[Rfam]
RNA sequence: AAUAUAUAACGGGUUUGGAGUCUGAAAAAACUCAAAAAGUAUUUGUGUUGUCAUCAGCUUCUUCUUUCGUAACAUUAACGAGACUGGAGUUAAAUAACAGCACAAAAUCU
Numbered sequence: 001a002a003u004a005u006a007u008a009a010c011g012g013g014u015u016u017g018g019a020g021u022c023u024g025a026a027a028a029a030a031c032u033c034a035a036a037a038a039g040u041a042u043u044u045g046u047g048u049u050g051u052c053a054u055c056a057g058c059u060u061c062u063u064c065u066u067u068c069g070u071a072a073c074a075u076u077a078a079c080g081a082g083a084c085u086g087g088a089g090u091u092a093a094a095u096a097a098c099a100g101c102a103c104a105a106a107a108u109c110u
Stems, first nucleotide, its partner, number of pairs: 044104007056091006063083004
This 110-nucleotide sequence from Cynara cardunculus belongs to the Rfam family "Small nucleolar RNA snoR97". The organism belongs to Cynara cardunculus subsp. cardunculus, within Eukaryota. Rfam links the family to the GO terms RNA processing and nucleolus. For this family Rfam cites "Experimental RNomics: identification of 140 candidates for small non-messenger RNAs in the plant Arabidopsis thaliana" (Marker et al., Curr Biol, 2002).